[Rfam]
RNA sequence: GGCCACUCUAUGCUUGAGUUCCGCAGCCAAGUGGCCCAUAAUCGUUUUCAUAGUCGUAAUUCCGGCAAACCGGAAGCGUUCUGGACGCGGGUUCGAUUCCCGCCACCUCCACCACUGAGGGGGUGUACUGGUUUCGACAGGGUGACAGAAGGCGCGCAGGCGGCUCGAGAGGCGACGGACGUAAUCCGCGCAAAUCUGUAAACGCCAACGAUGAGCGUUUCGCACUGGCCGCUUAGGCCUGCUGAGGACGUAGCCGUCCAAUAAACAGAAUGGCUAUCGGCGGGGGCUUCGGCCCCCGCCGUCA
Numbered sequence: 001g002g003c004c005a006c007u008c009u010a011u012g013c014u015u016g017a018g019u020u021c022c023g024c025a026g027c028c029a030a031g032u033g034g035c036c037c038a039u040a041a042u043c044g045u046u047u048u049c050a051u052a053g054u055c056g057u058a059a060u061u062c063c064g065g066c067a068a069a070c071c072g073g074a075a076g077c078g079u080u081c082u083g084g085a086c087g088c089g090g091g092u093u094c095g096a097u098u099c100c101c102g103c104c105a106c107c108u109c110c111a112c113c114a115c116u117g118a119g120g121g122g123g124u125g126u127a128c129u130g131g132u133u134u135c136g137a138c139a140g141g142g143u144g145a146c147a148g149a150a151g152g153c154g155c156g157c158a159g160g161c162g163g164c165u166c167g168a169g170a171g172g173c174g175a176c177g178g179a180c181g182u183a184a185u186c187c188g189c190g191c192a193a194a195u196c197u198g199u200a201a202a203c204g205c206c207a208a209c210g211a212u213g214a215g216c217g218u219u220u221c222g223c224a225c226u227g228g229c230c231g232c233u234u235a236g237g238c239c240u241g242c243u244g245a246g247g248a249c250g251u252a253g254c255c256g257u258c259c260a261a262u263a264a265a266c267a268g269a270a271u272g273g274c275u276a277u278c279g280g281c282g283g284g285g286g287c288u289u290c291g292g293c294c295c296c297c298g299c300c301g302u303c304a
Base pairs, nucleotide, nucleotide: 052165053164054163055162056161062160063159065157066156070151077144078143079142080141081140082139083138087103088102089101090100091099104125105124106123107122108121109120110119166181167180246259247258248257250277251276252275253274254273255272280299281298282297283296284295285294286293287292
Dot-bracket structure: ...................................................(((((.....((.((...(......(((((((...(((((.......)))))(((((((........)))))))............)))))))......)....)).)))))))((............))................................................................[[[.((((((.]]]............))))))..((((((((....)))))))).....
The family of this 304-nucleotide sequence from Candidatus Accumulibacter aalborgensis is "Betaproteobacteria transfer-messenger RNA".
The family's consensus secondary structure is taken from published work.
On this family, see Mao et al., RNA Biol 2010: "Variations on the tmRNA gene".
Rfam's curators write: Bacterial tmRNA, also known as 10Sa RNA or SsrA, is named for its dual tRNA and mRNA-like properties. Its role is to liberate the mRNA from a stalled ribosome. To accomplish this part of the tmRNA is used as a reading frame that ends in a translation stop signal. The broken mRNA is replaced in the ribosome by the tmRNA and translation of the tmRNA leads to addition of a proteolysis tag to the incomplete protein enabling recognition by a protease.
Taxonomically the source falls in Candidatus Accumulibacter (Bacteria, Pseudomonadati, Pseudomonadota, Betaproteobacteria).